A member of the RNA family "Archaeal large subunit ribosomal RNA" from Thermoplasmatales archaeon A-plasma, 257 nucleotides of a longer RNA. Taxonomically the source falls in Thermoplasmatales (Archaea, Methanobacteriati, Thermoplasmatota, Thermoplasmata). It is one of the family's seed sequences.
RNA sequence: CGAUGUCUGAAGGGAAGGAGCCUUUAGUACGAGAGGAACGGGGGUUCGUGACCUCUGGUUUGCCGGUUGUCUGUCAAGGCAUUUGCCGGGUAGCCACGUCAUACGCGAAUAAAAGCUGAAAGCAUCUAAGCUUGAAGUCGCCCCUGAAAAUAGACAUCGUUAUUAGGUCUCUCCUAGAAGAGGAGAUUGAUAGAACUGGGAUGUAAGUGCCGAGCUUCGGCGAGGCAUUCAGUCUACAGUUACUAAUCGACCGAAUG
Numbered sequence: 001c002g003a004u005g006u007c008u009g010a011a012g013g014g015a016a017g018g019a020g021c022c023u024u025u026a027g028u029a030c031g032a033g034a035g036g037a038a039c040g041g042g043g044g045u046u047c048g049u050g051a052c053c054u055c056u057g058g059u060u061u062g063c064c065g066g067u068u069g070u071c072u073g074u075c076a077a078g079g080c081a082u083u084u085g086c087c088g089g090g091u092a093g094c095c096a097c098g099u100c101a102u103a104c105g106c107g108a109a110u111a112a113a114a115g116c117u118g119a120a121a122g123c124a125u126c127u128a129a130g131c132u133u134g135a136a137g138u139c140g141c142c143c144c145u146g147a148a149a150a151u152a153g154a155c156a157u158c159g160u161u162a163u164u165a166g167g168u169c170u171c172u173c174c175u176a177g178a179a180g181a182g183g184a185g186a187u188u189g190a191u192a193g194a195a196c197u198g199g200g201a202u203g204u205a206a207g208u209g210c211c212g213a214g215c216u217u218c219g220g221c222g223a224g225g226c227a228u229u230c231a232g233u234c235u236a237c238a239g240u241u242a243c244u245a246a247u248c249g250a251c252c253g254a255a256u257g
Base pairs, nucleotide, nucleotide: 001159002158003157004156005155006154007153008152011145012144013143014142017047018046019045021043022042023041024040048102049101050100051099052098056096057095058094063089064088065087066086067085068081069080070079071078072077106140107139108138113133114132115131116130117129166252167251168250169249170186171185172184173183174182191245192244193243194241195240196239197238198237199235200234201233207228208227209226210225211224214221
Dot-bracket structure: ((((((((..((((..(((.((((...............)))).)))(((((...(((....((((((((((....)))))...)))))....))).)))))...(((....(((((...........)))))....))).))))......))))))))......(((((((((.......)))))....(((((((((((.....(((((..(......)..)))))....))).))))).)))...)))).....